[Rfam]
RNA: S10-Clostridia ribosomal protein leader
Organism: Lentilactobacillus buchneri
RNA sequence: UAUUAGCUUUGAUGUGAAAGGUUGCGACACACCCGGAUGCUUUGCCAUGGGUUUGGCGGUAAUUUUCACGGAGUUAGUCCUAUUUUCAAAAUAGACGAAGGAGGGAA
Numbered sequence: 001u002a003u004u005a006g007c008u009u010u011g012a013u014g015u016g017a018a019a020g021g022u023u024g025c026g027a028c029a030c031a032c033c034c035g036g037a038u039g040c041u042u043u044g045c046c047a048u049g050g051g052u053u054u055g056g057c058g059g060u061a062a063u064u065u066u067c068a069c070g071g072a073g074u075u076a077g078u079c080c081u082a083u084u085u086u087c088a089a090a091a092u093a094g095a096c097g098a099a100g101g102a103g104g105g106a107a
Base pairs, nucleotide, nucleotide: 014069015068016067018066019065020064021063025058026057028055029054078106079105080104081103084102085101086100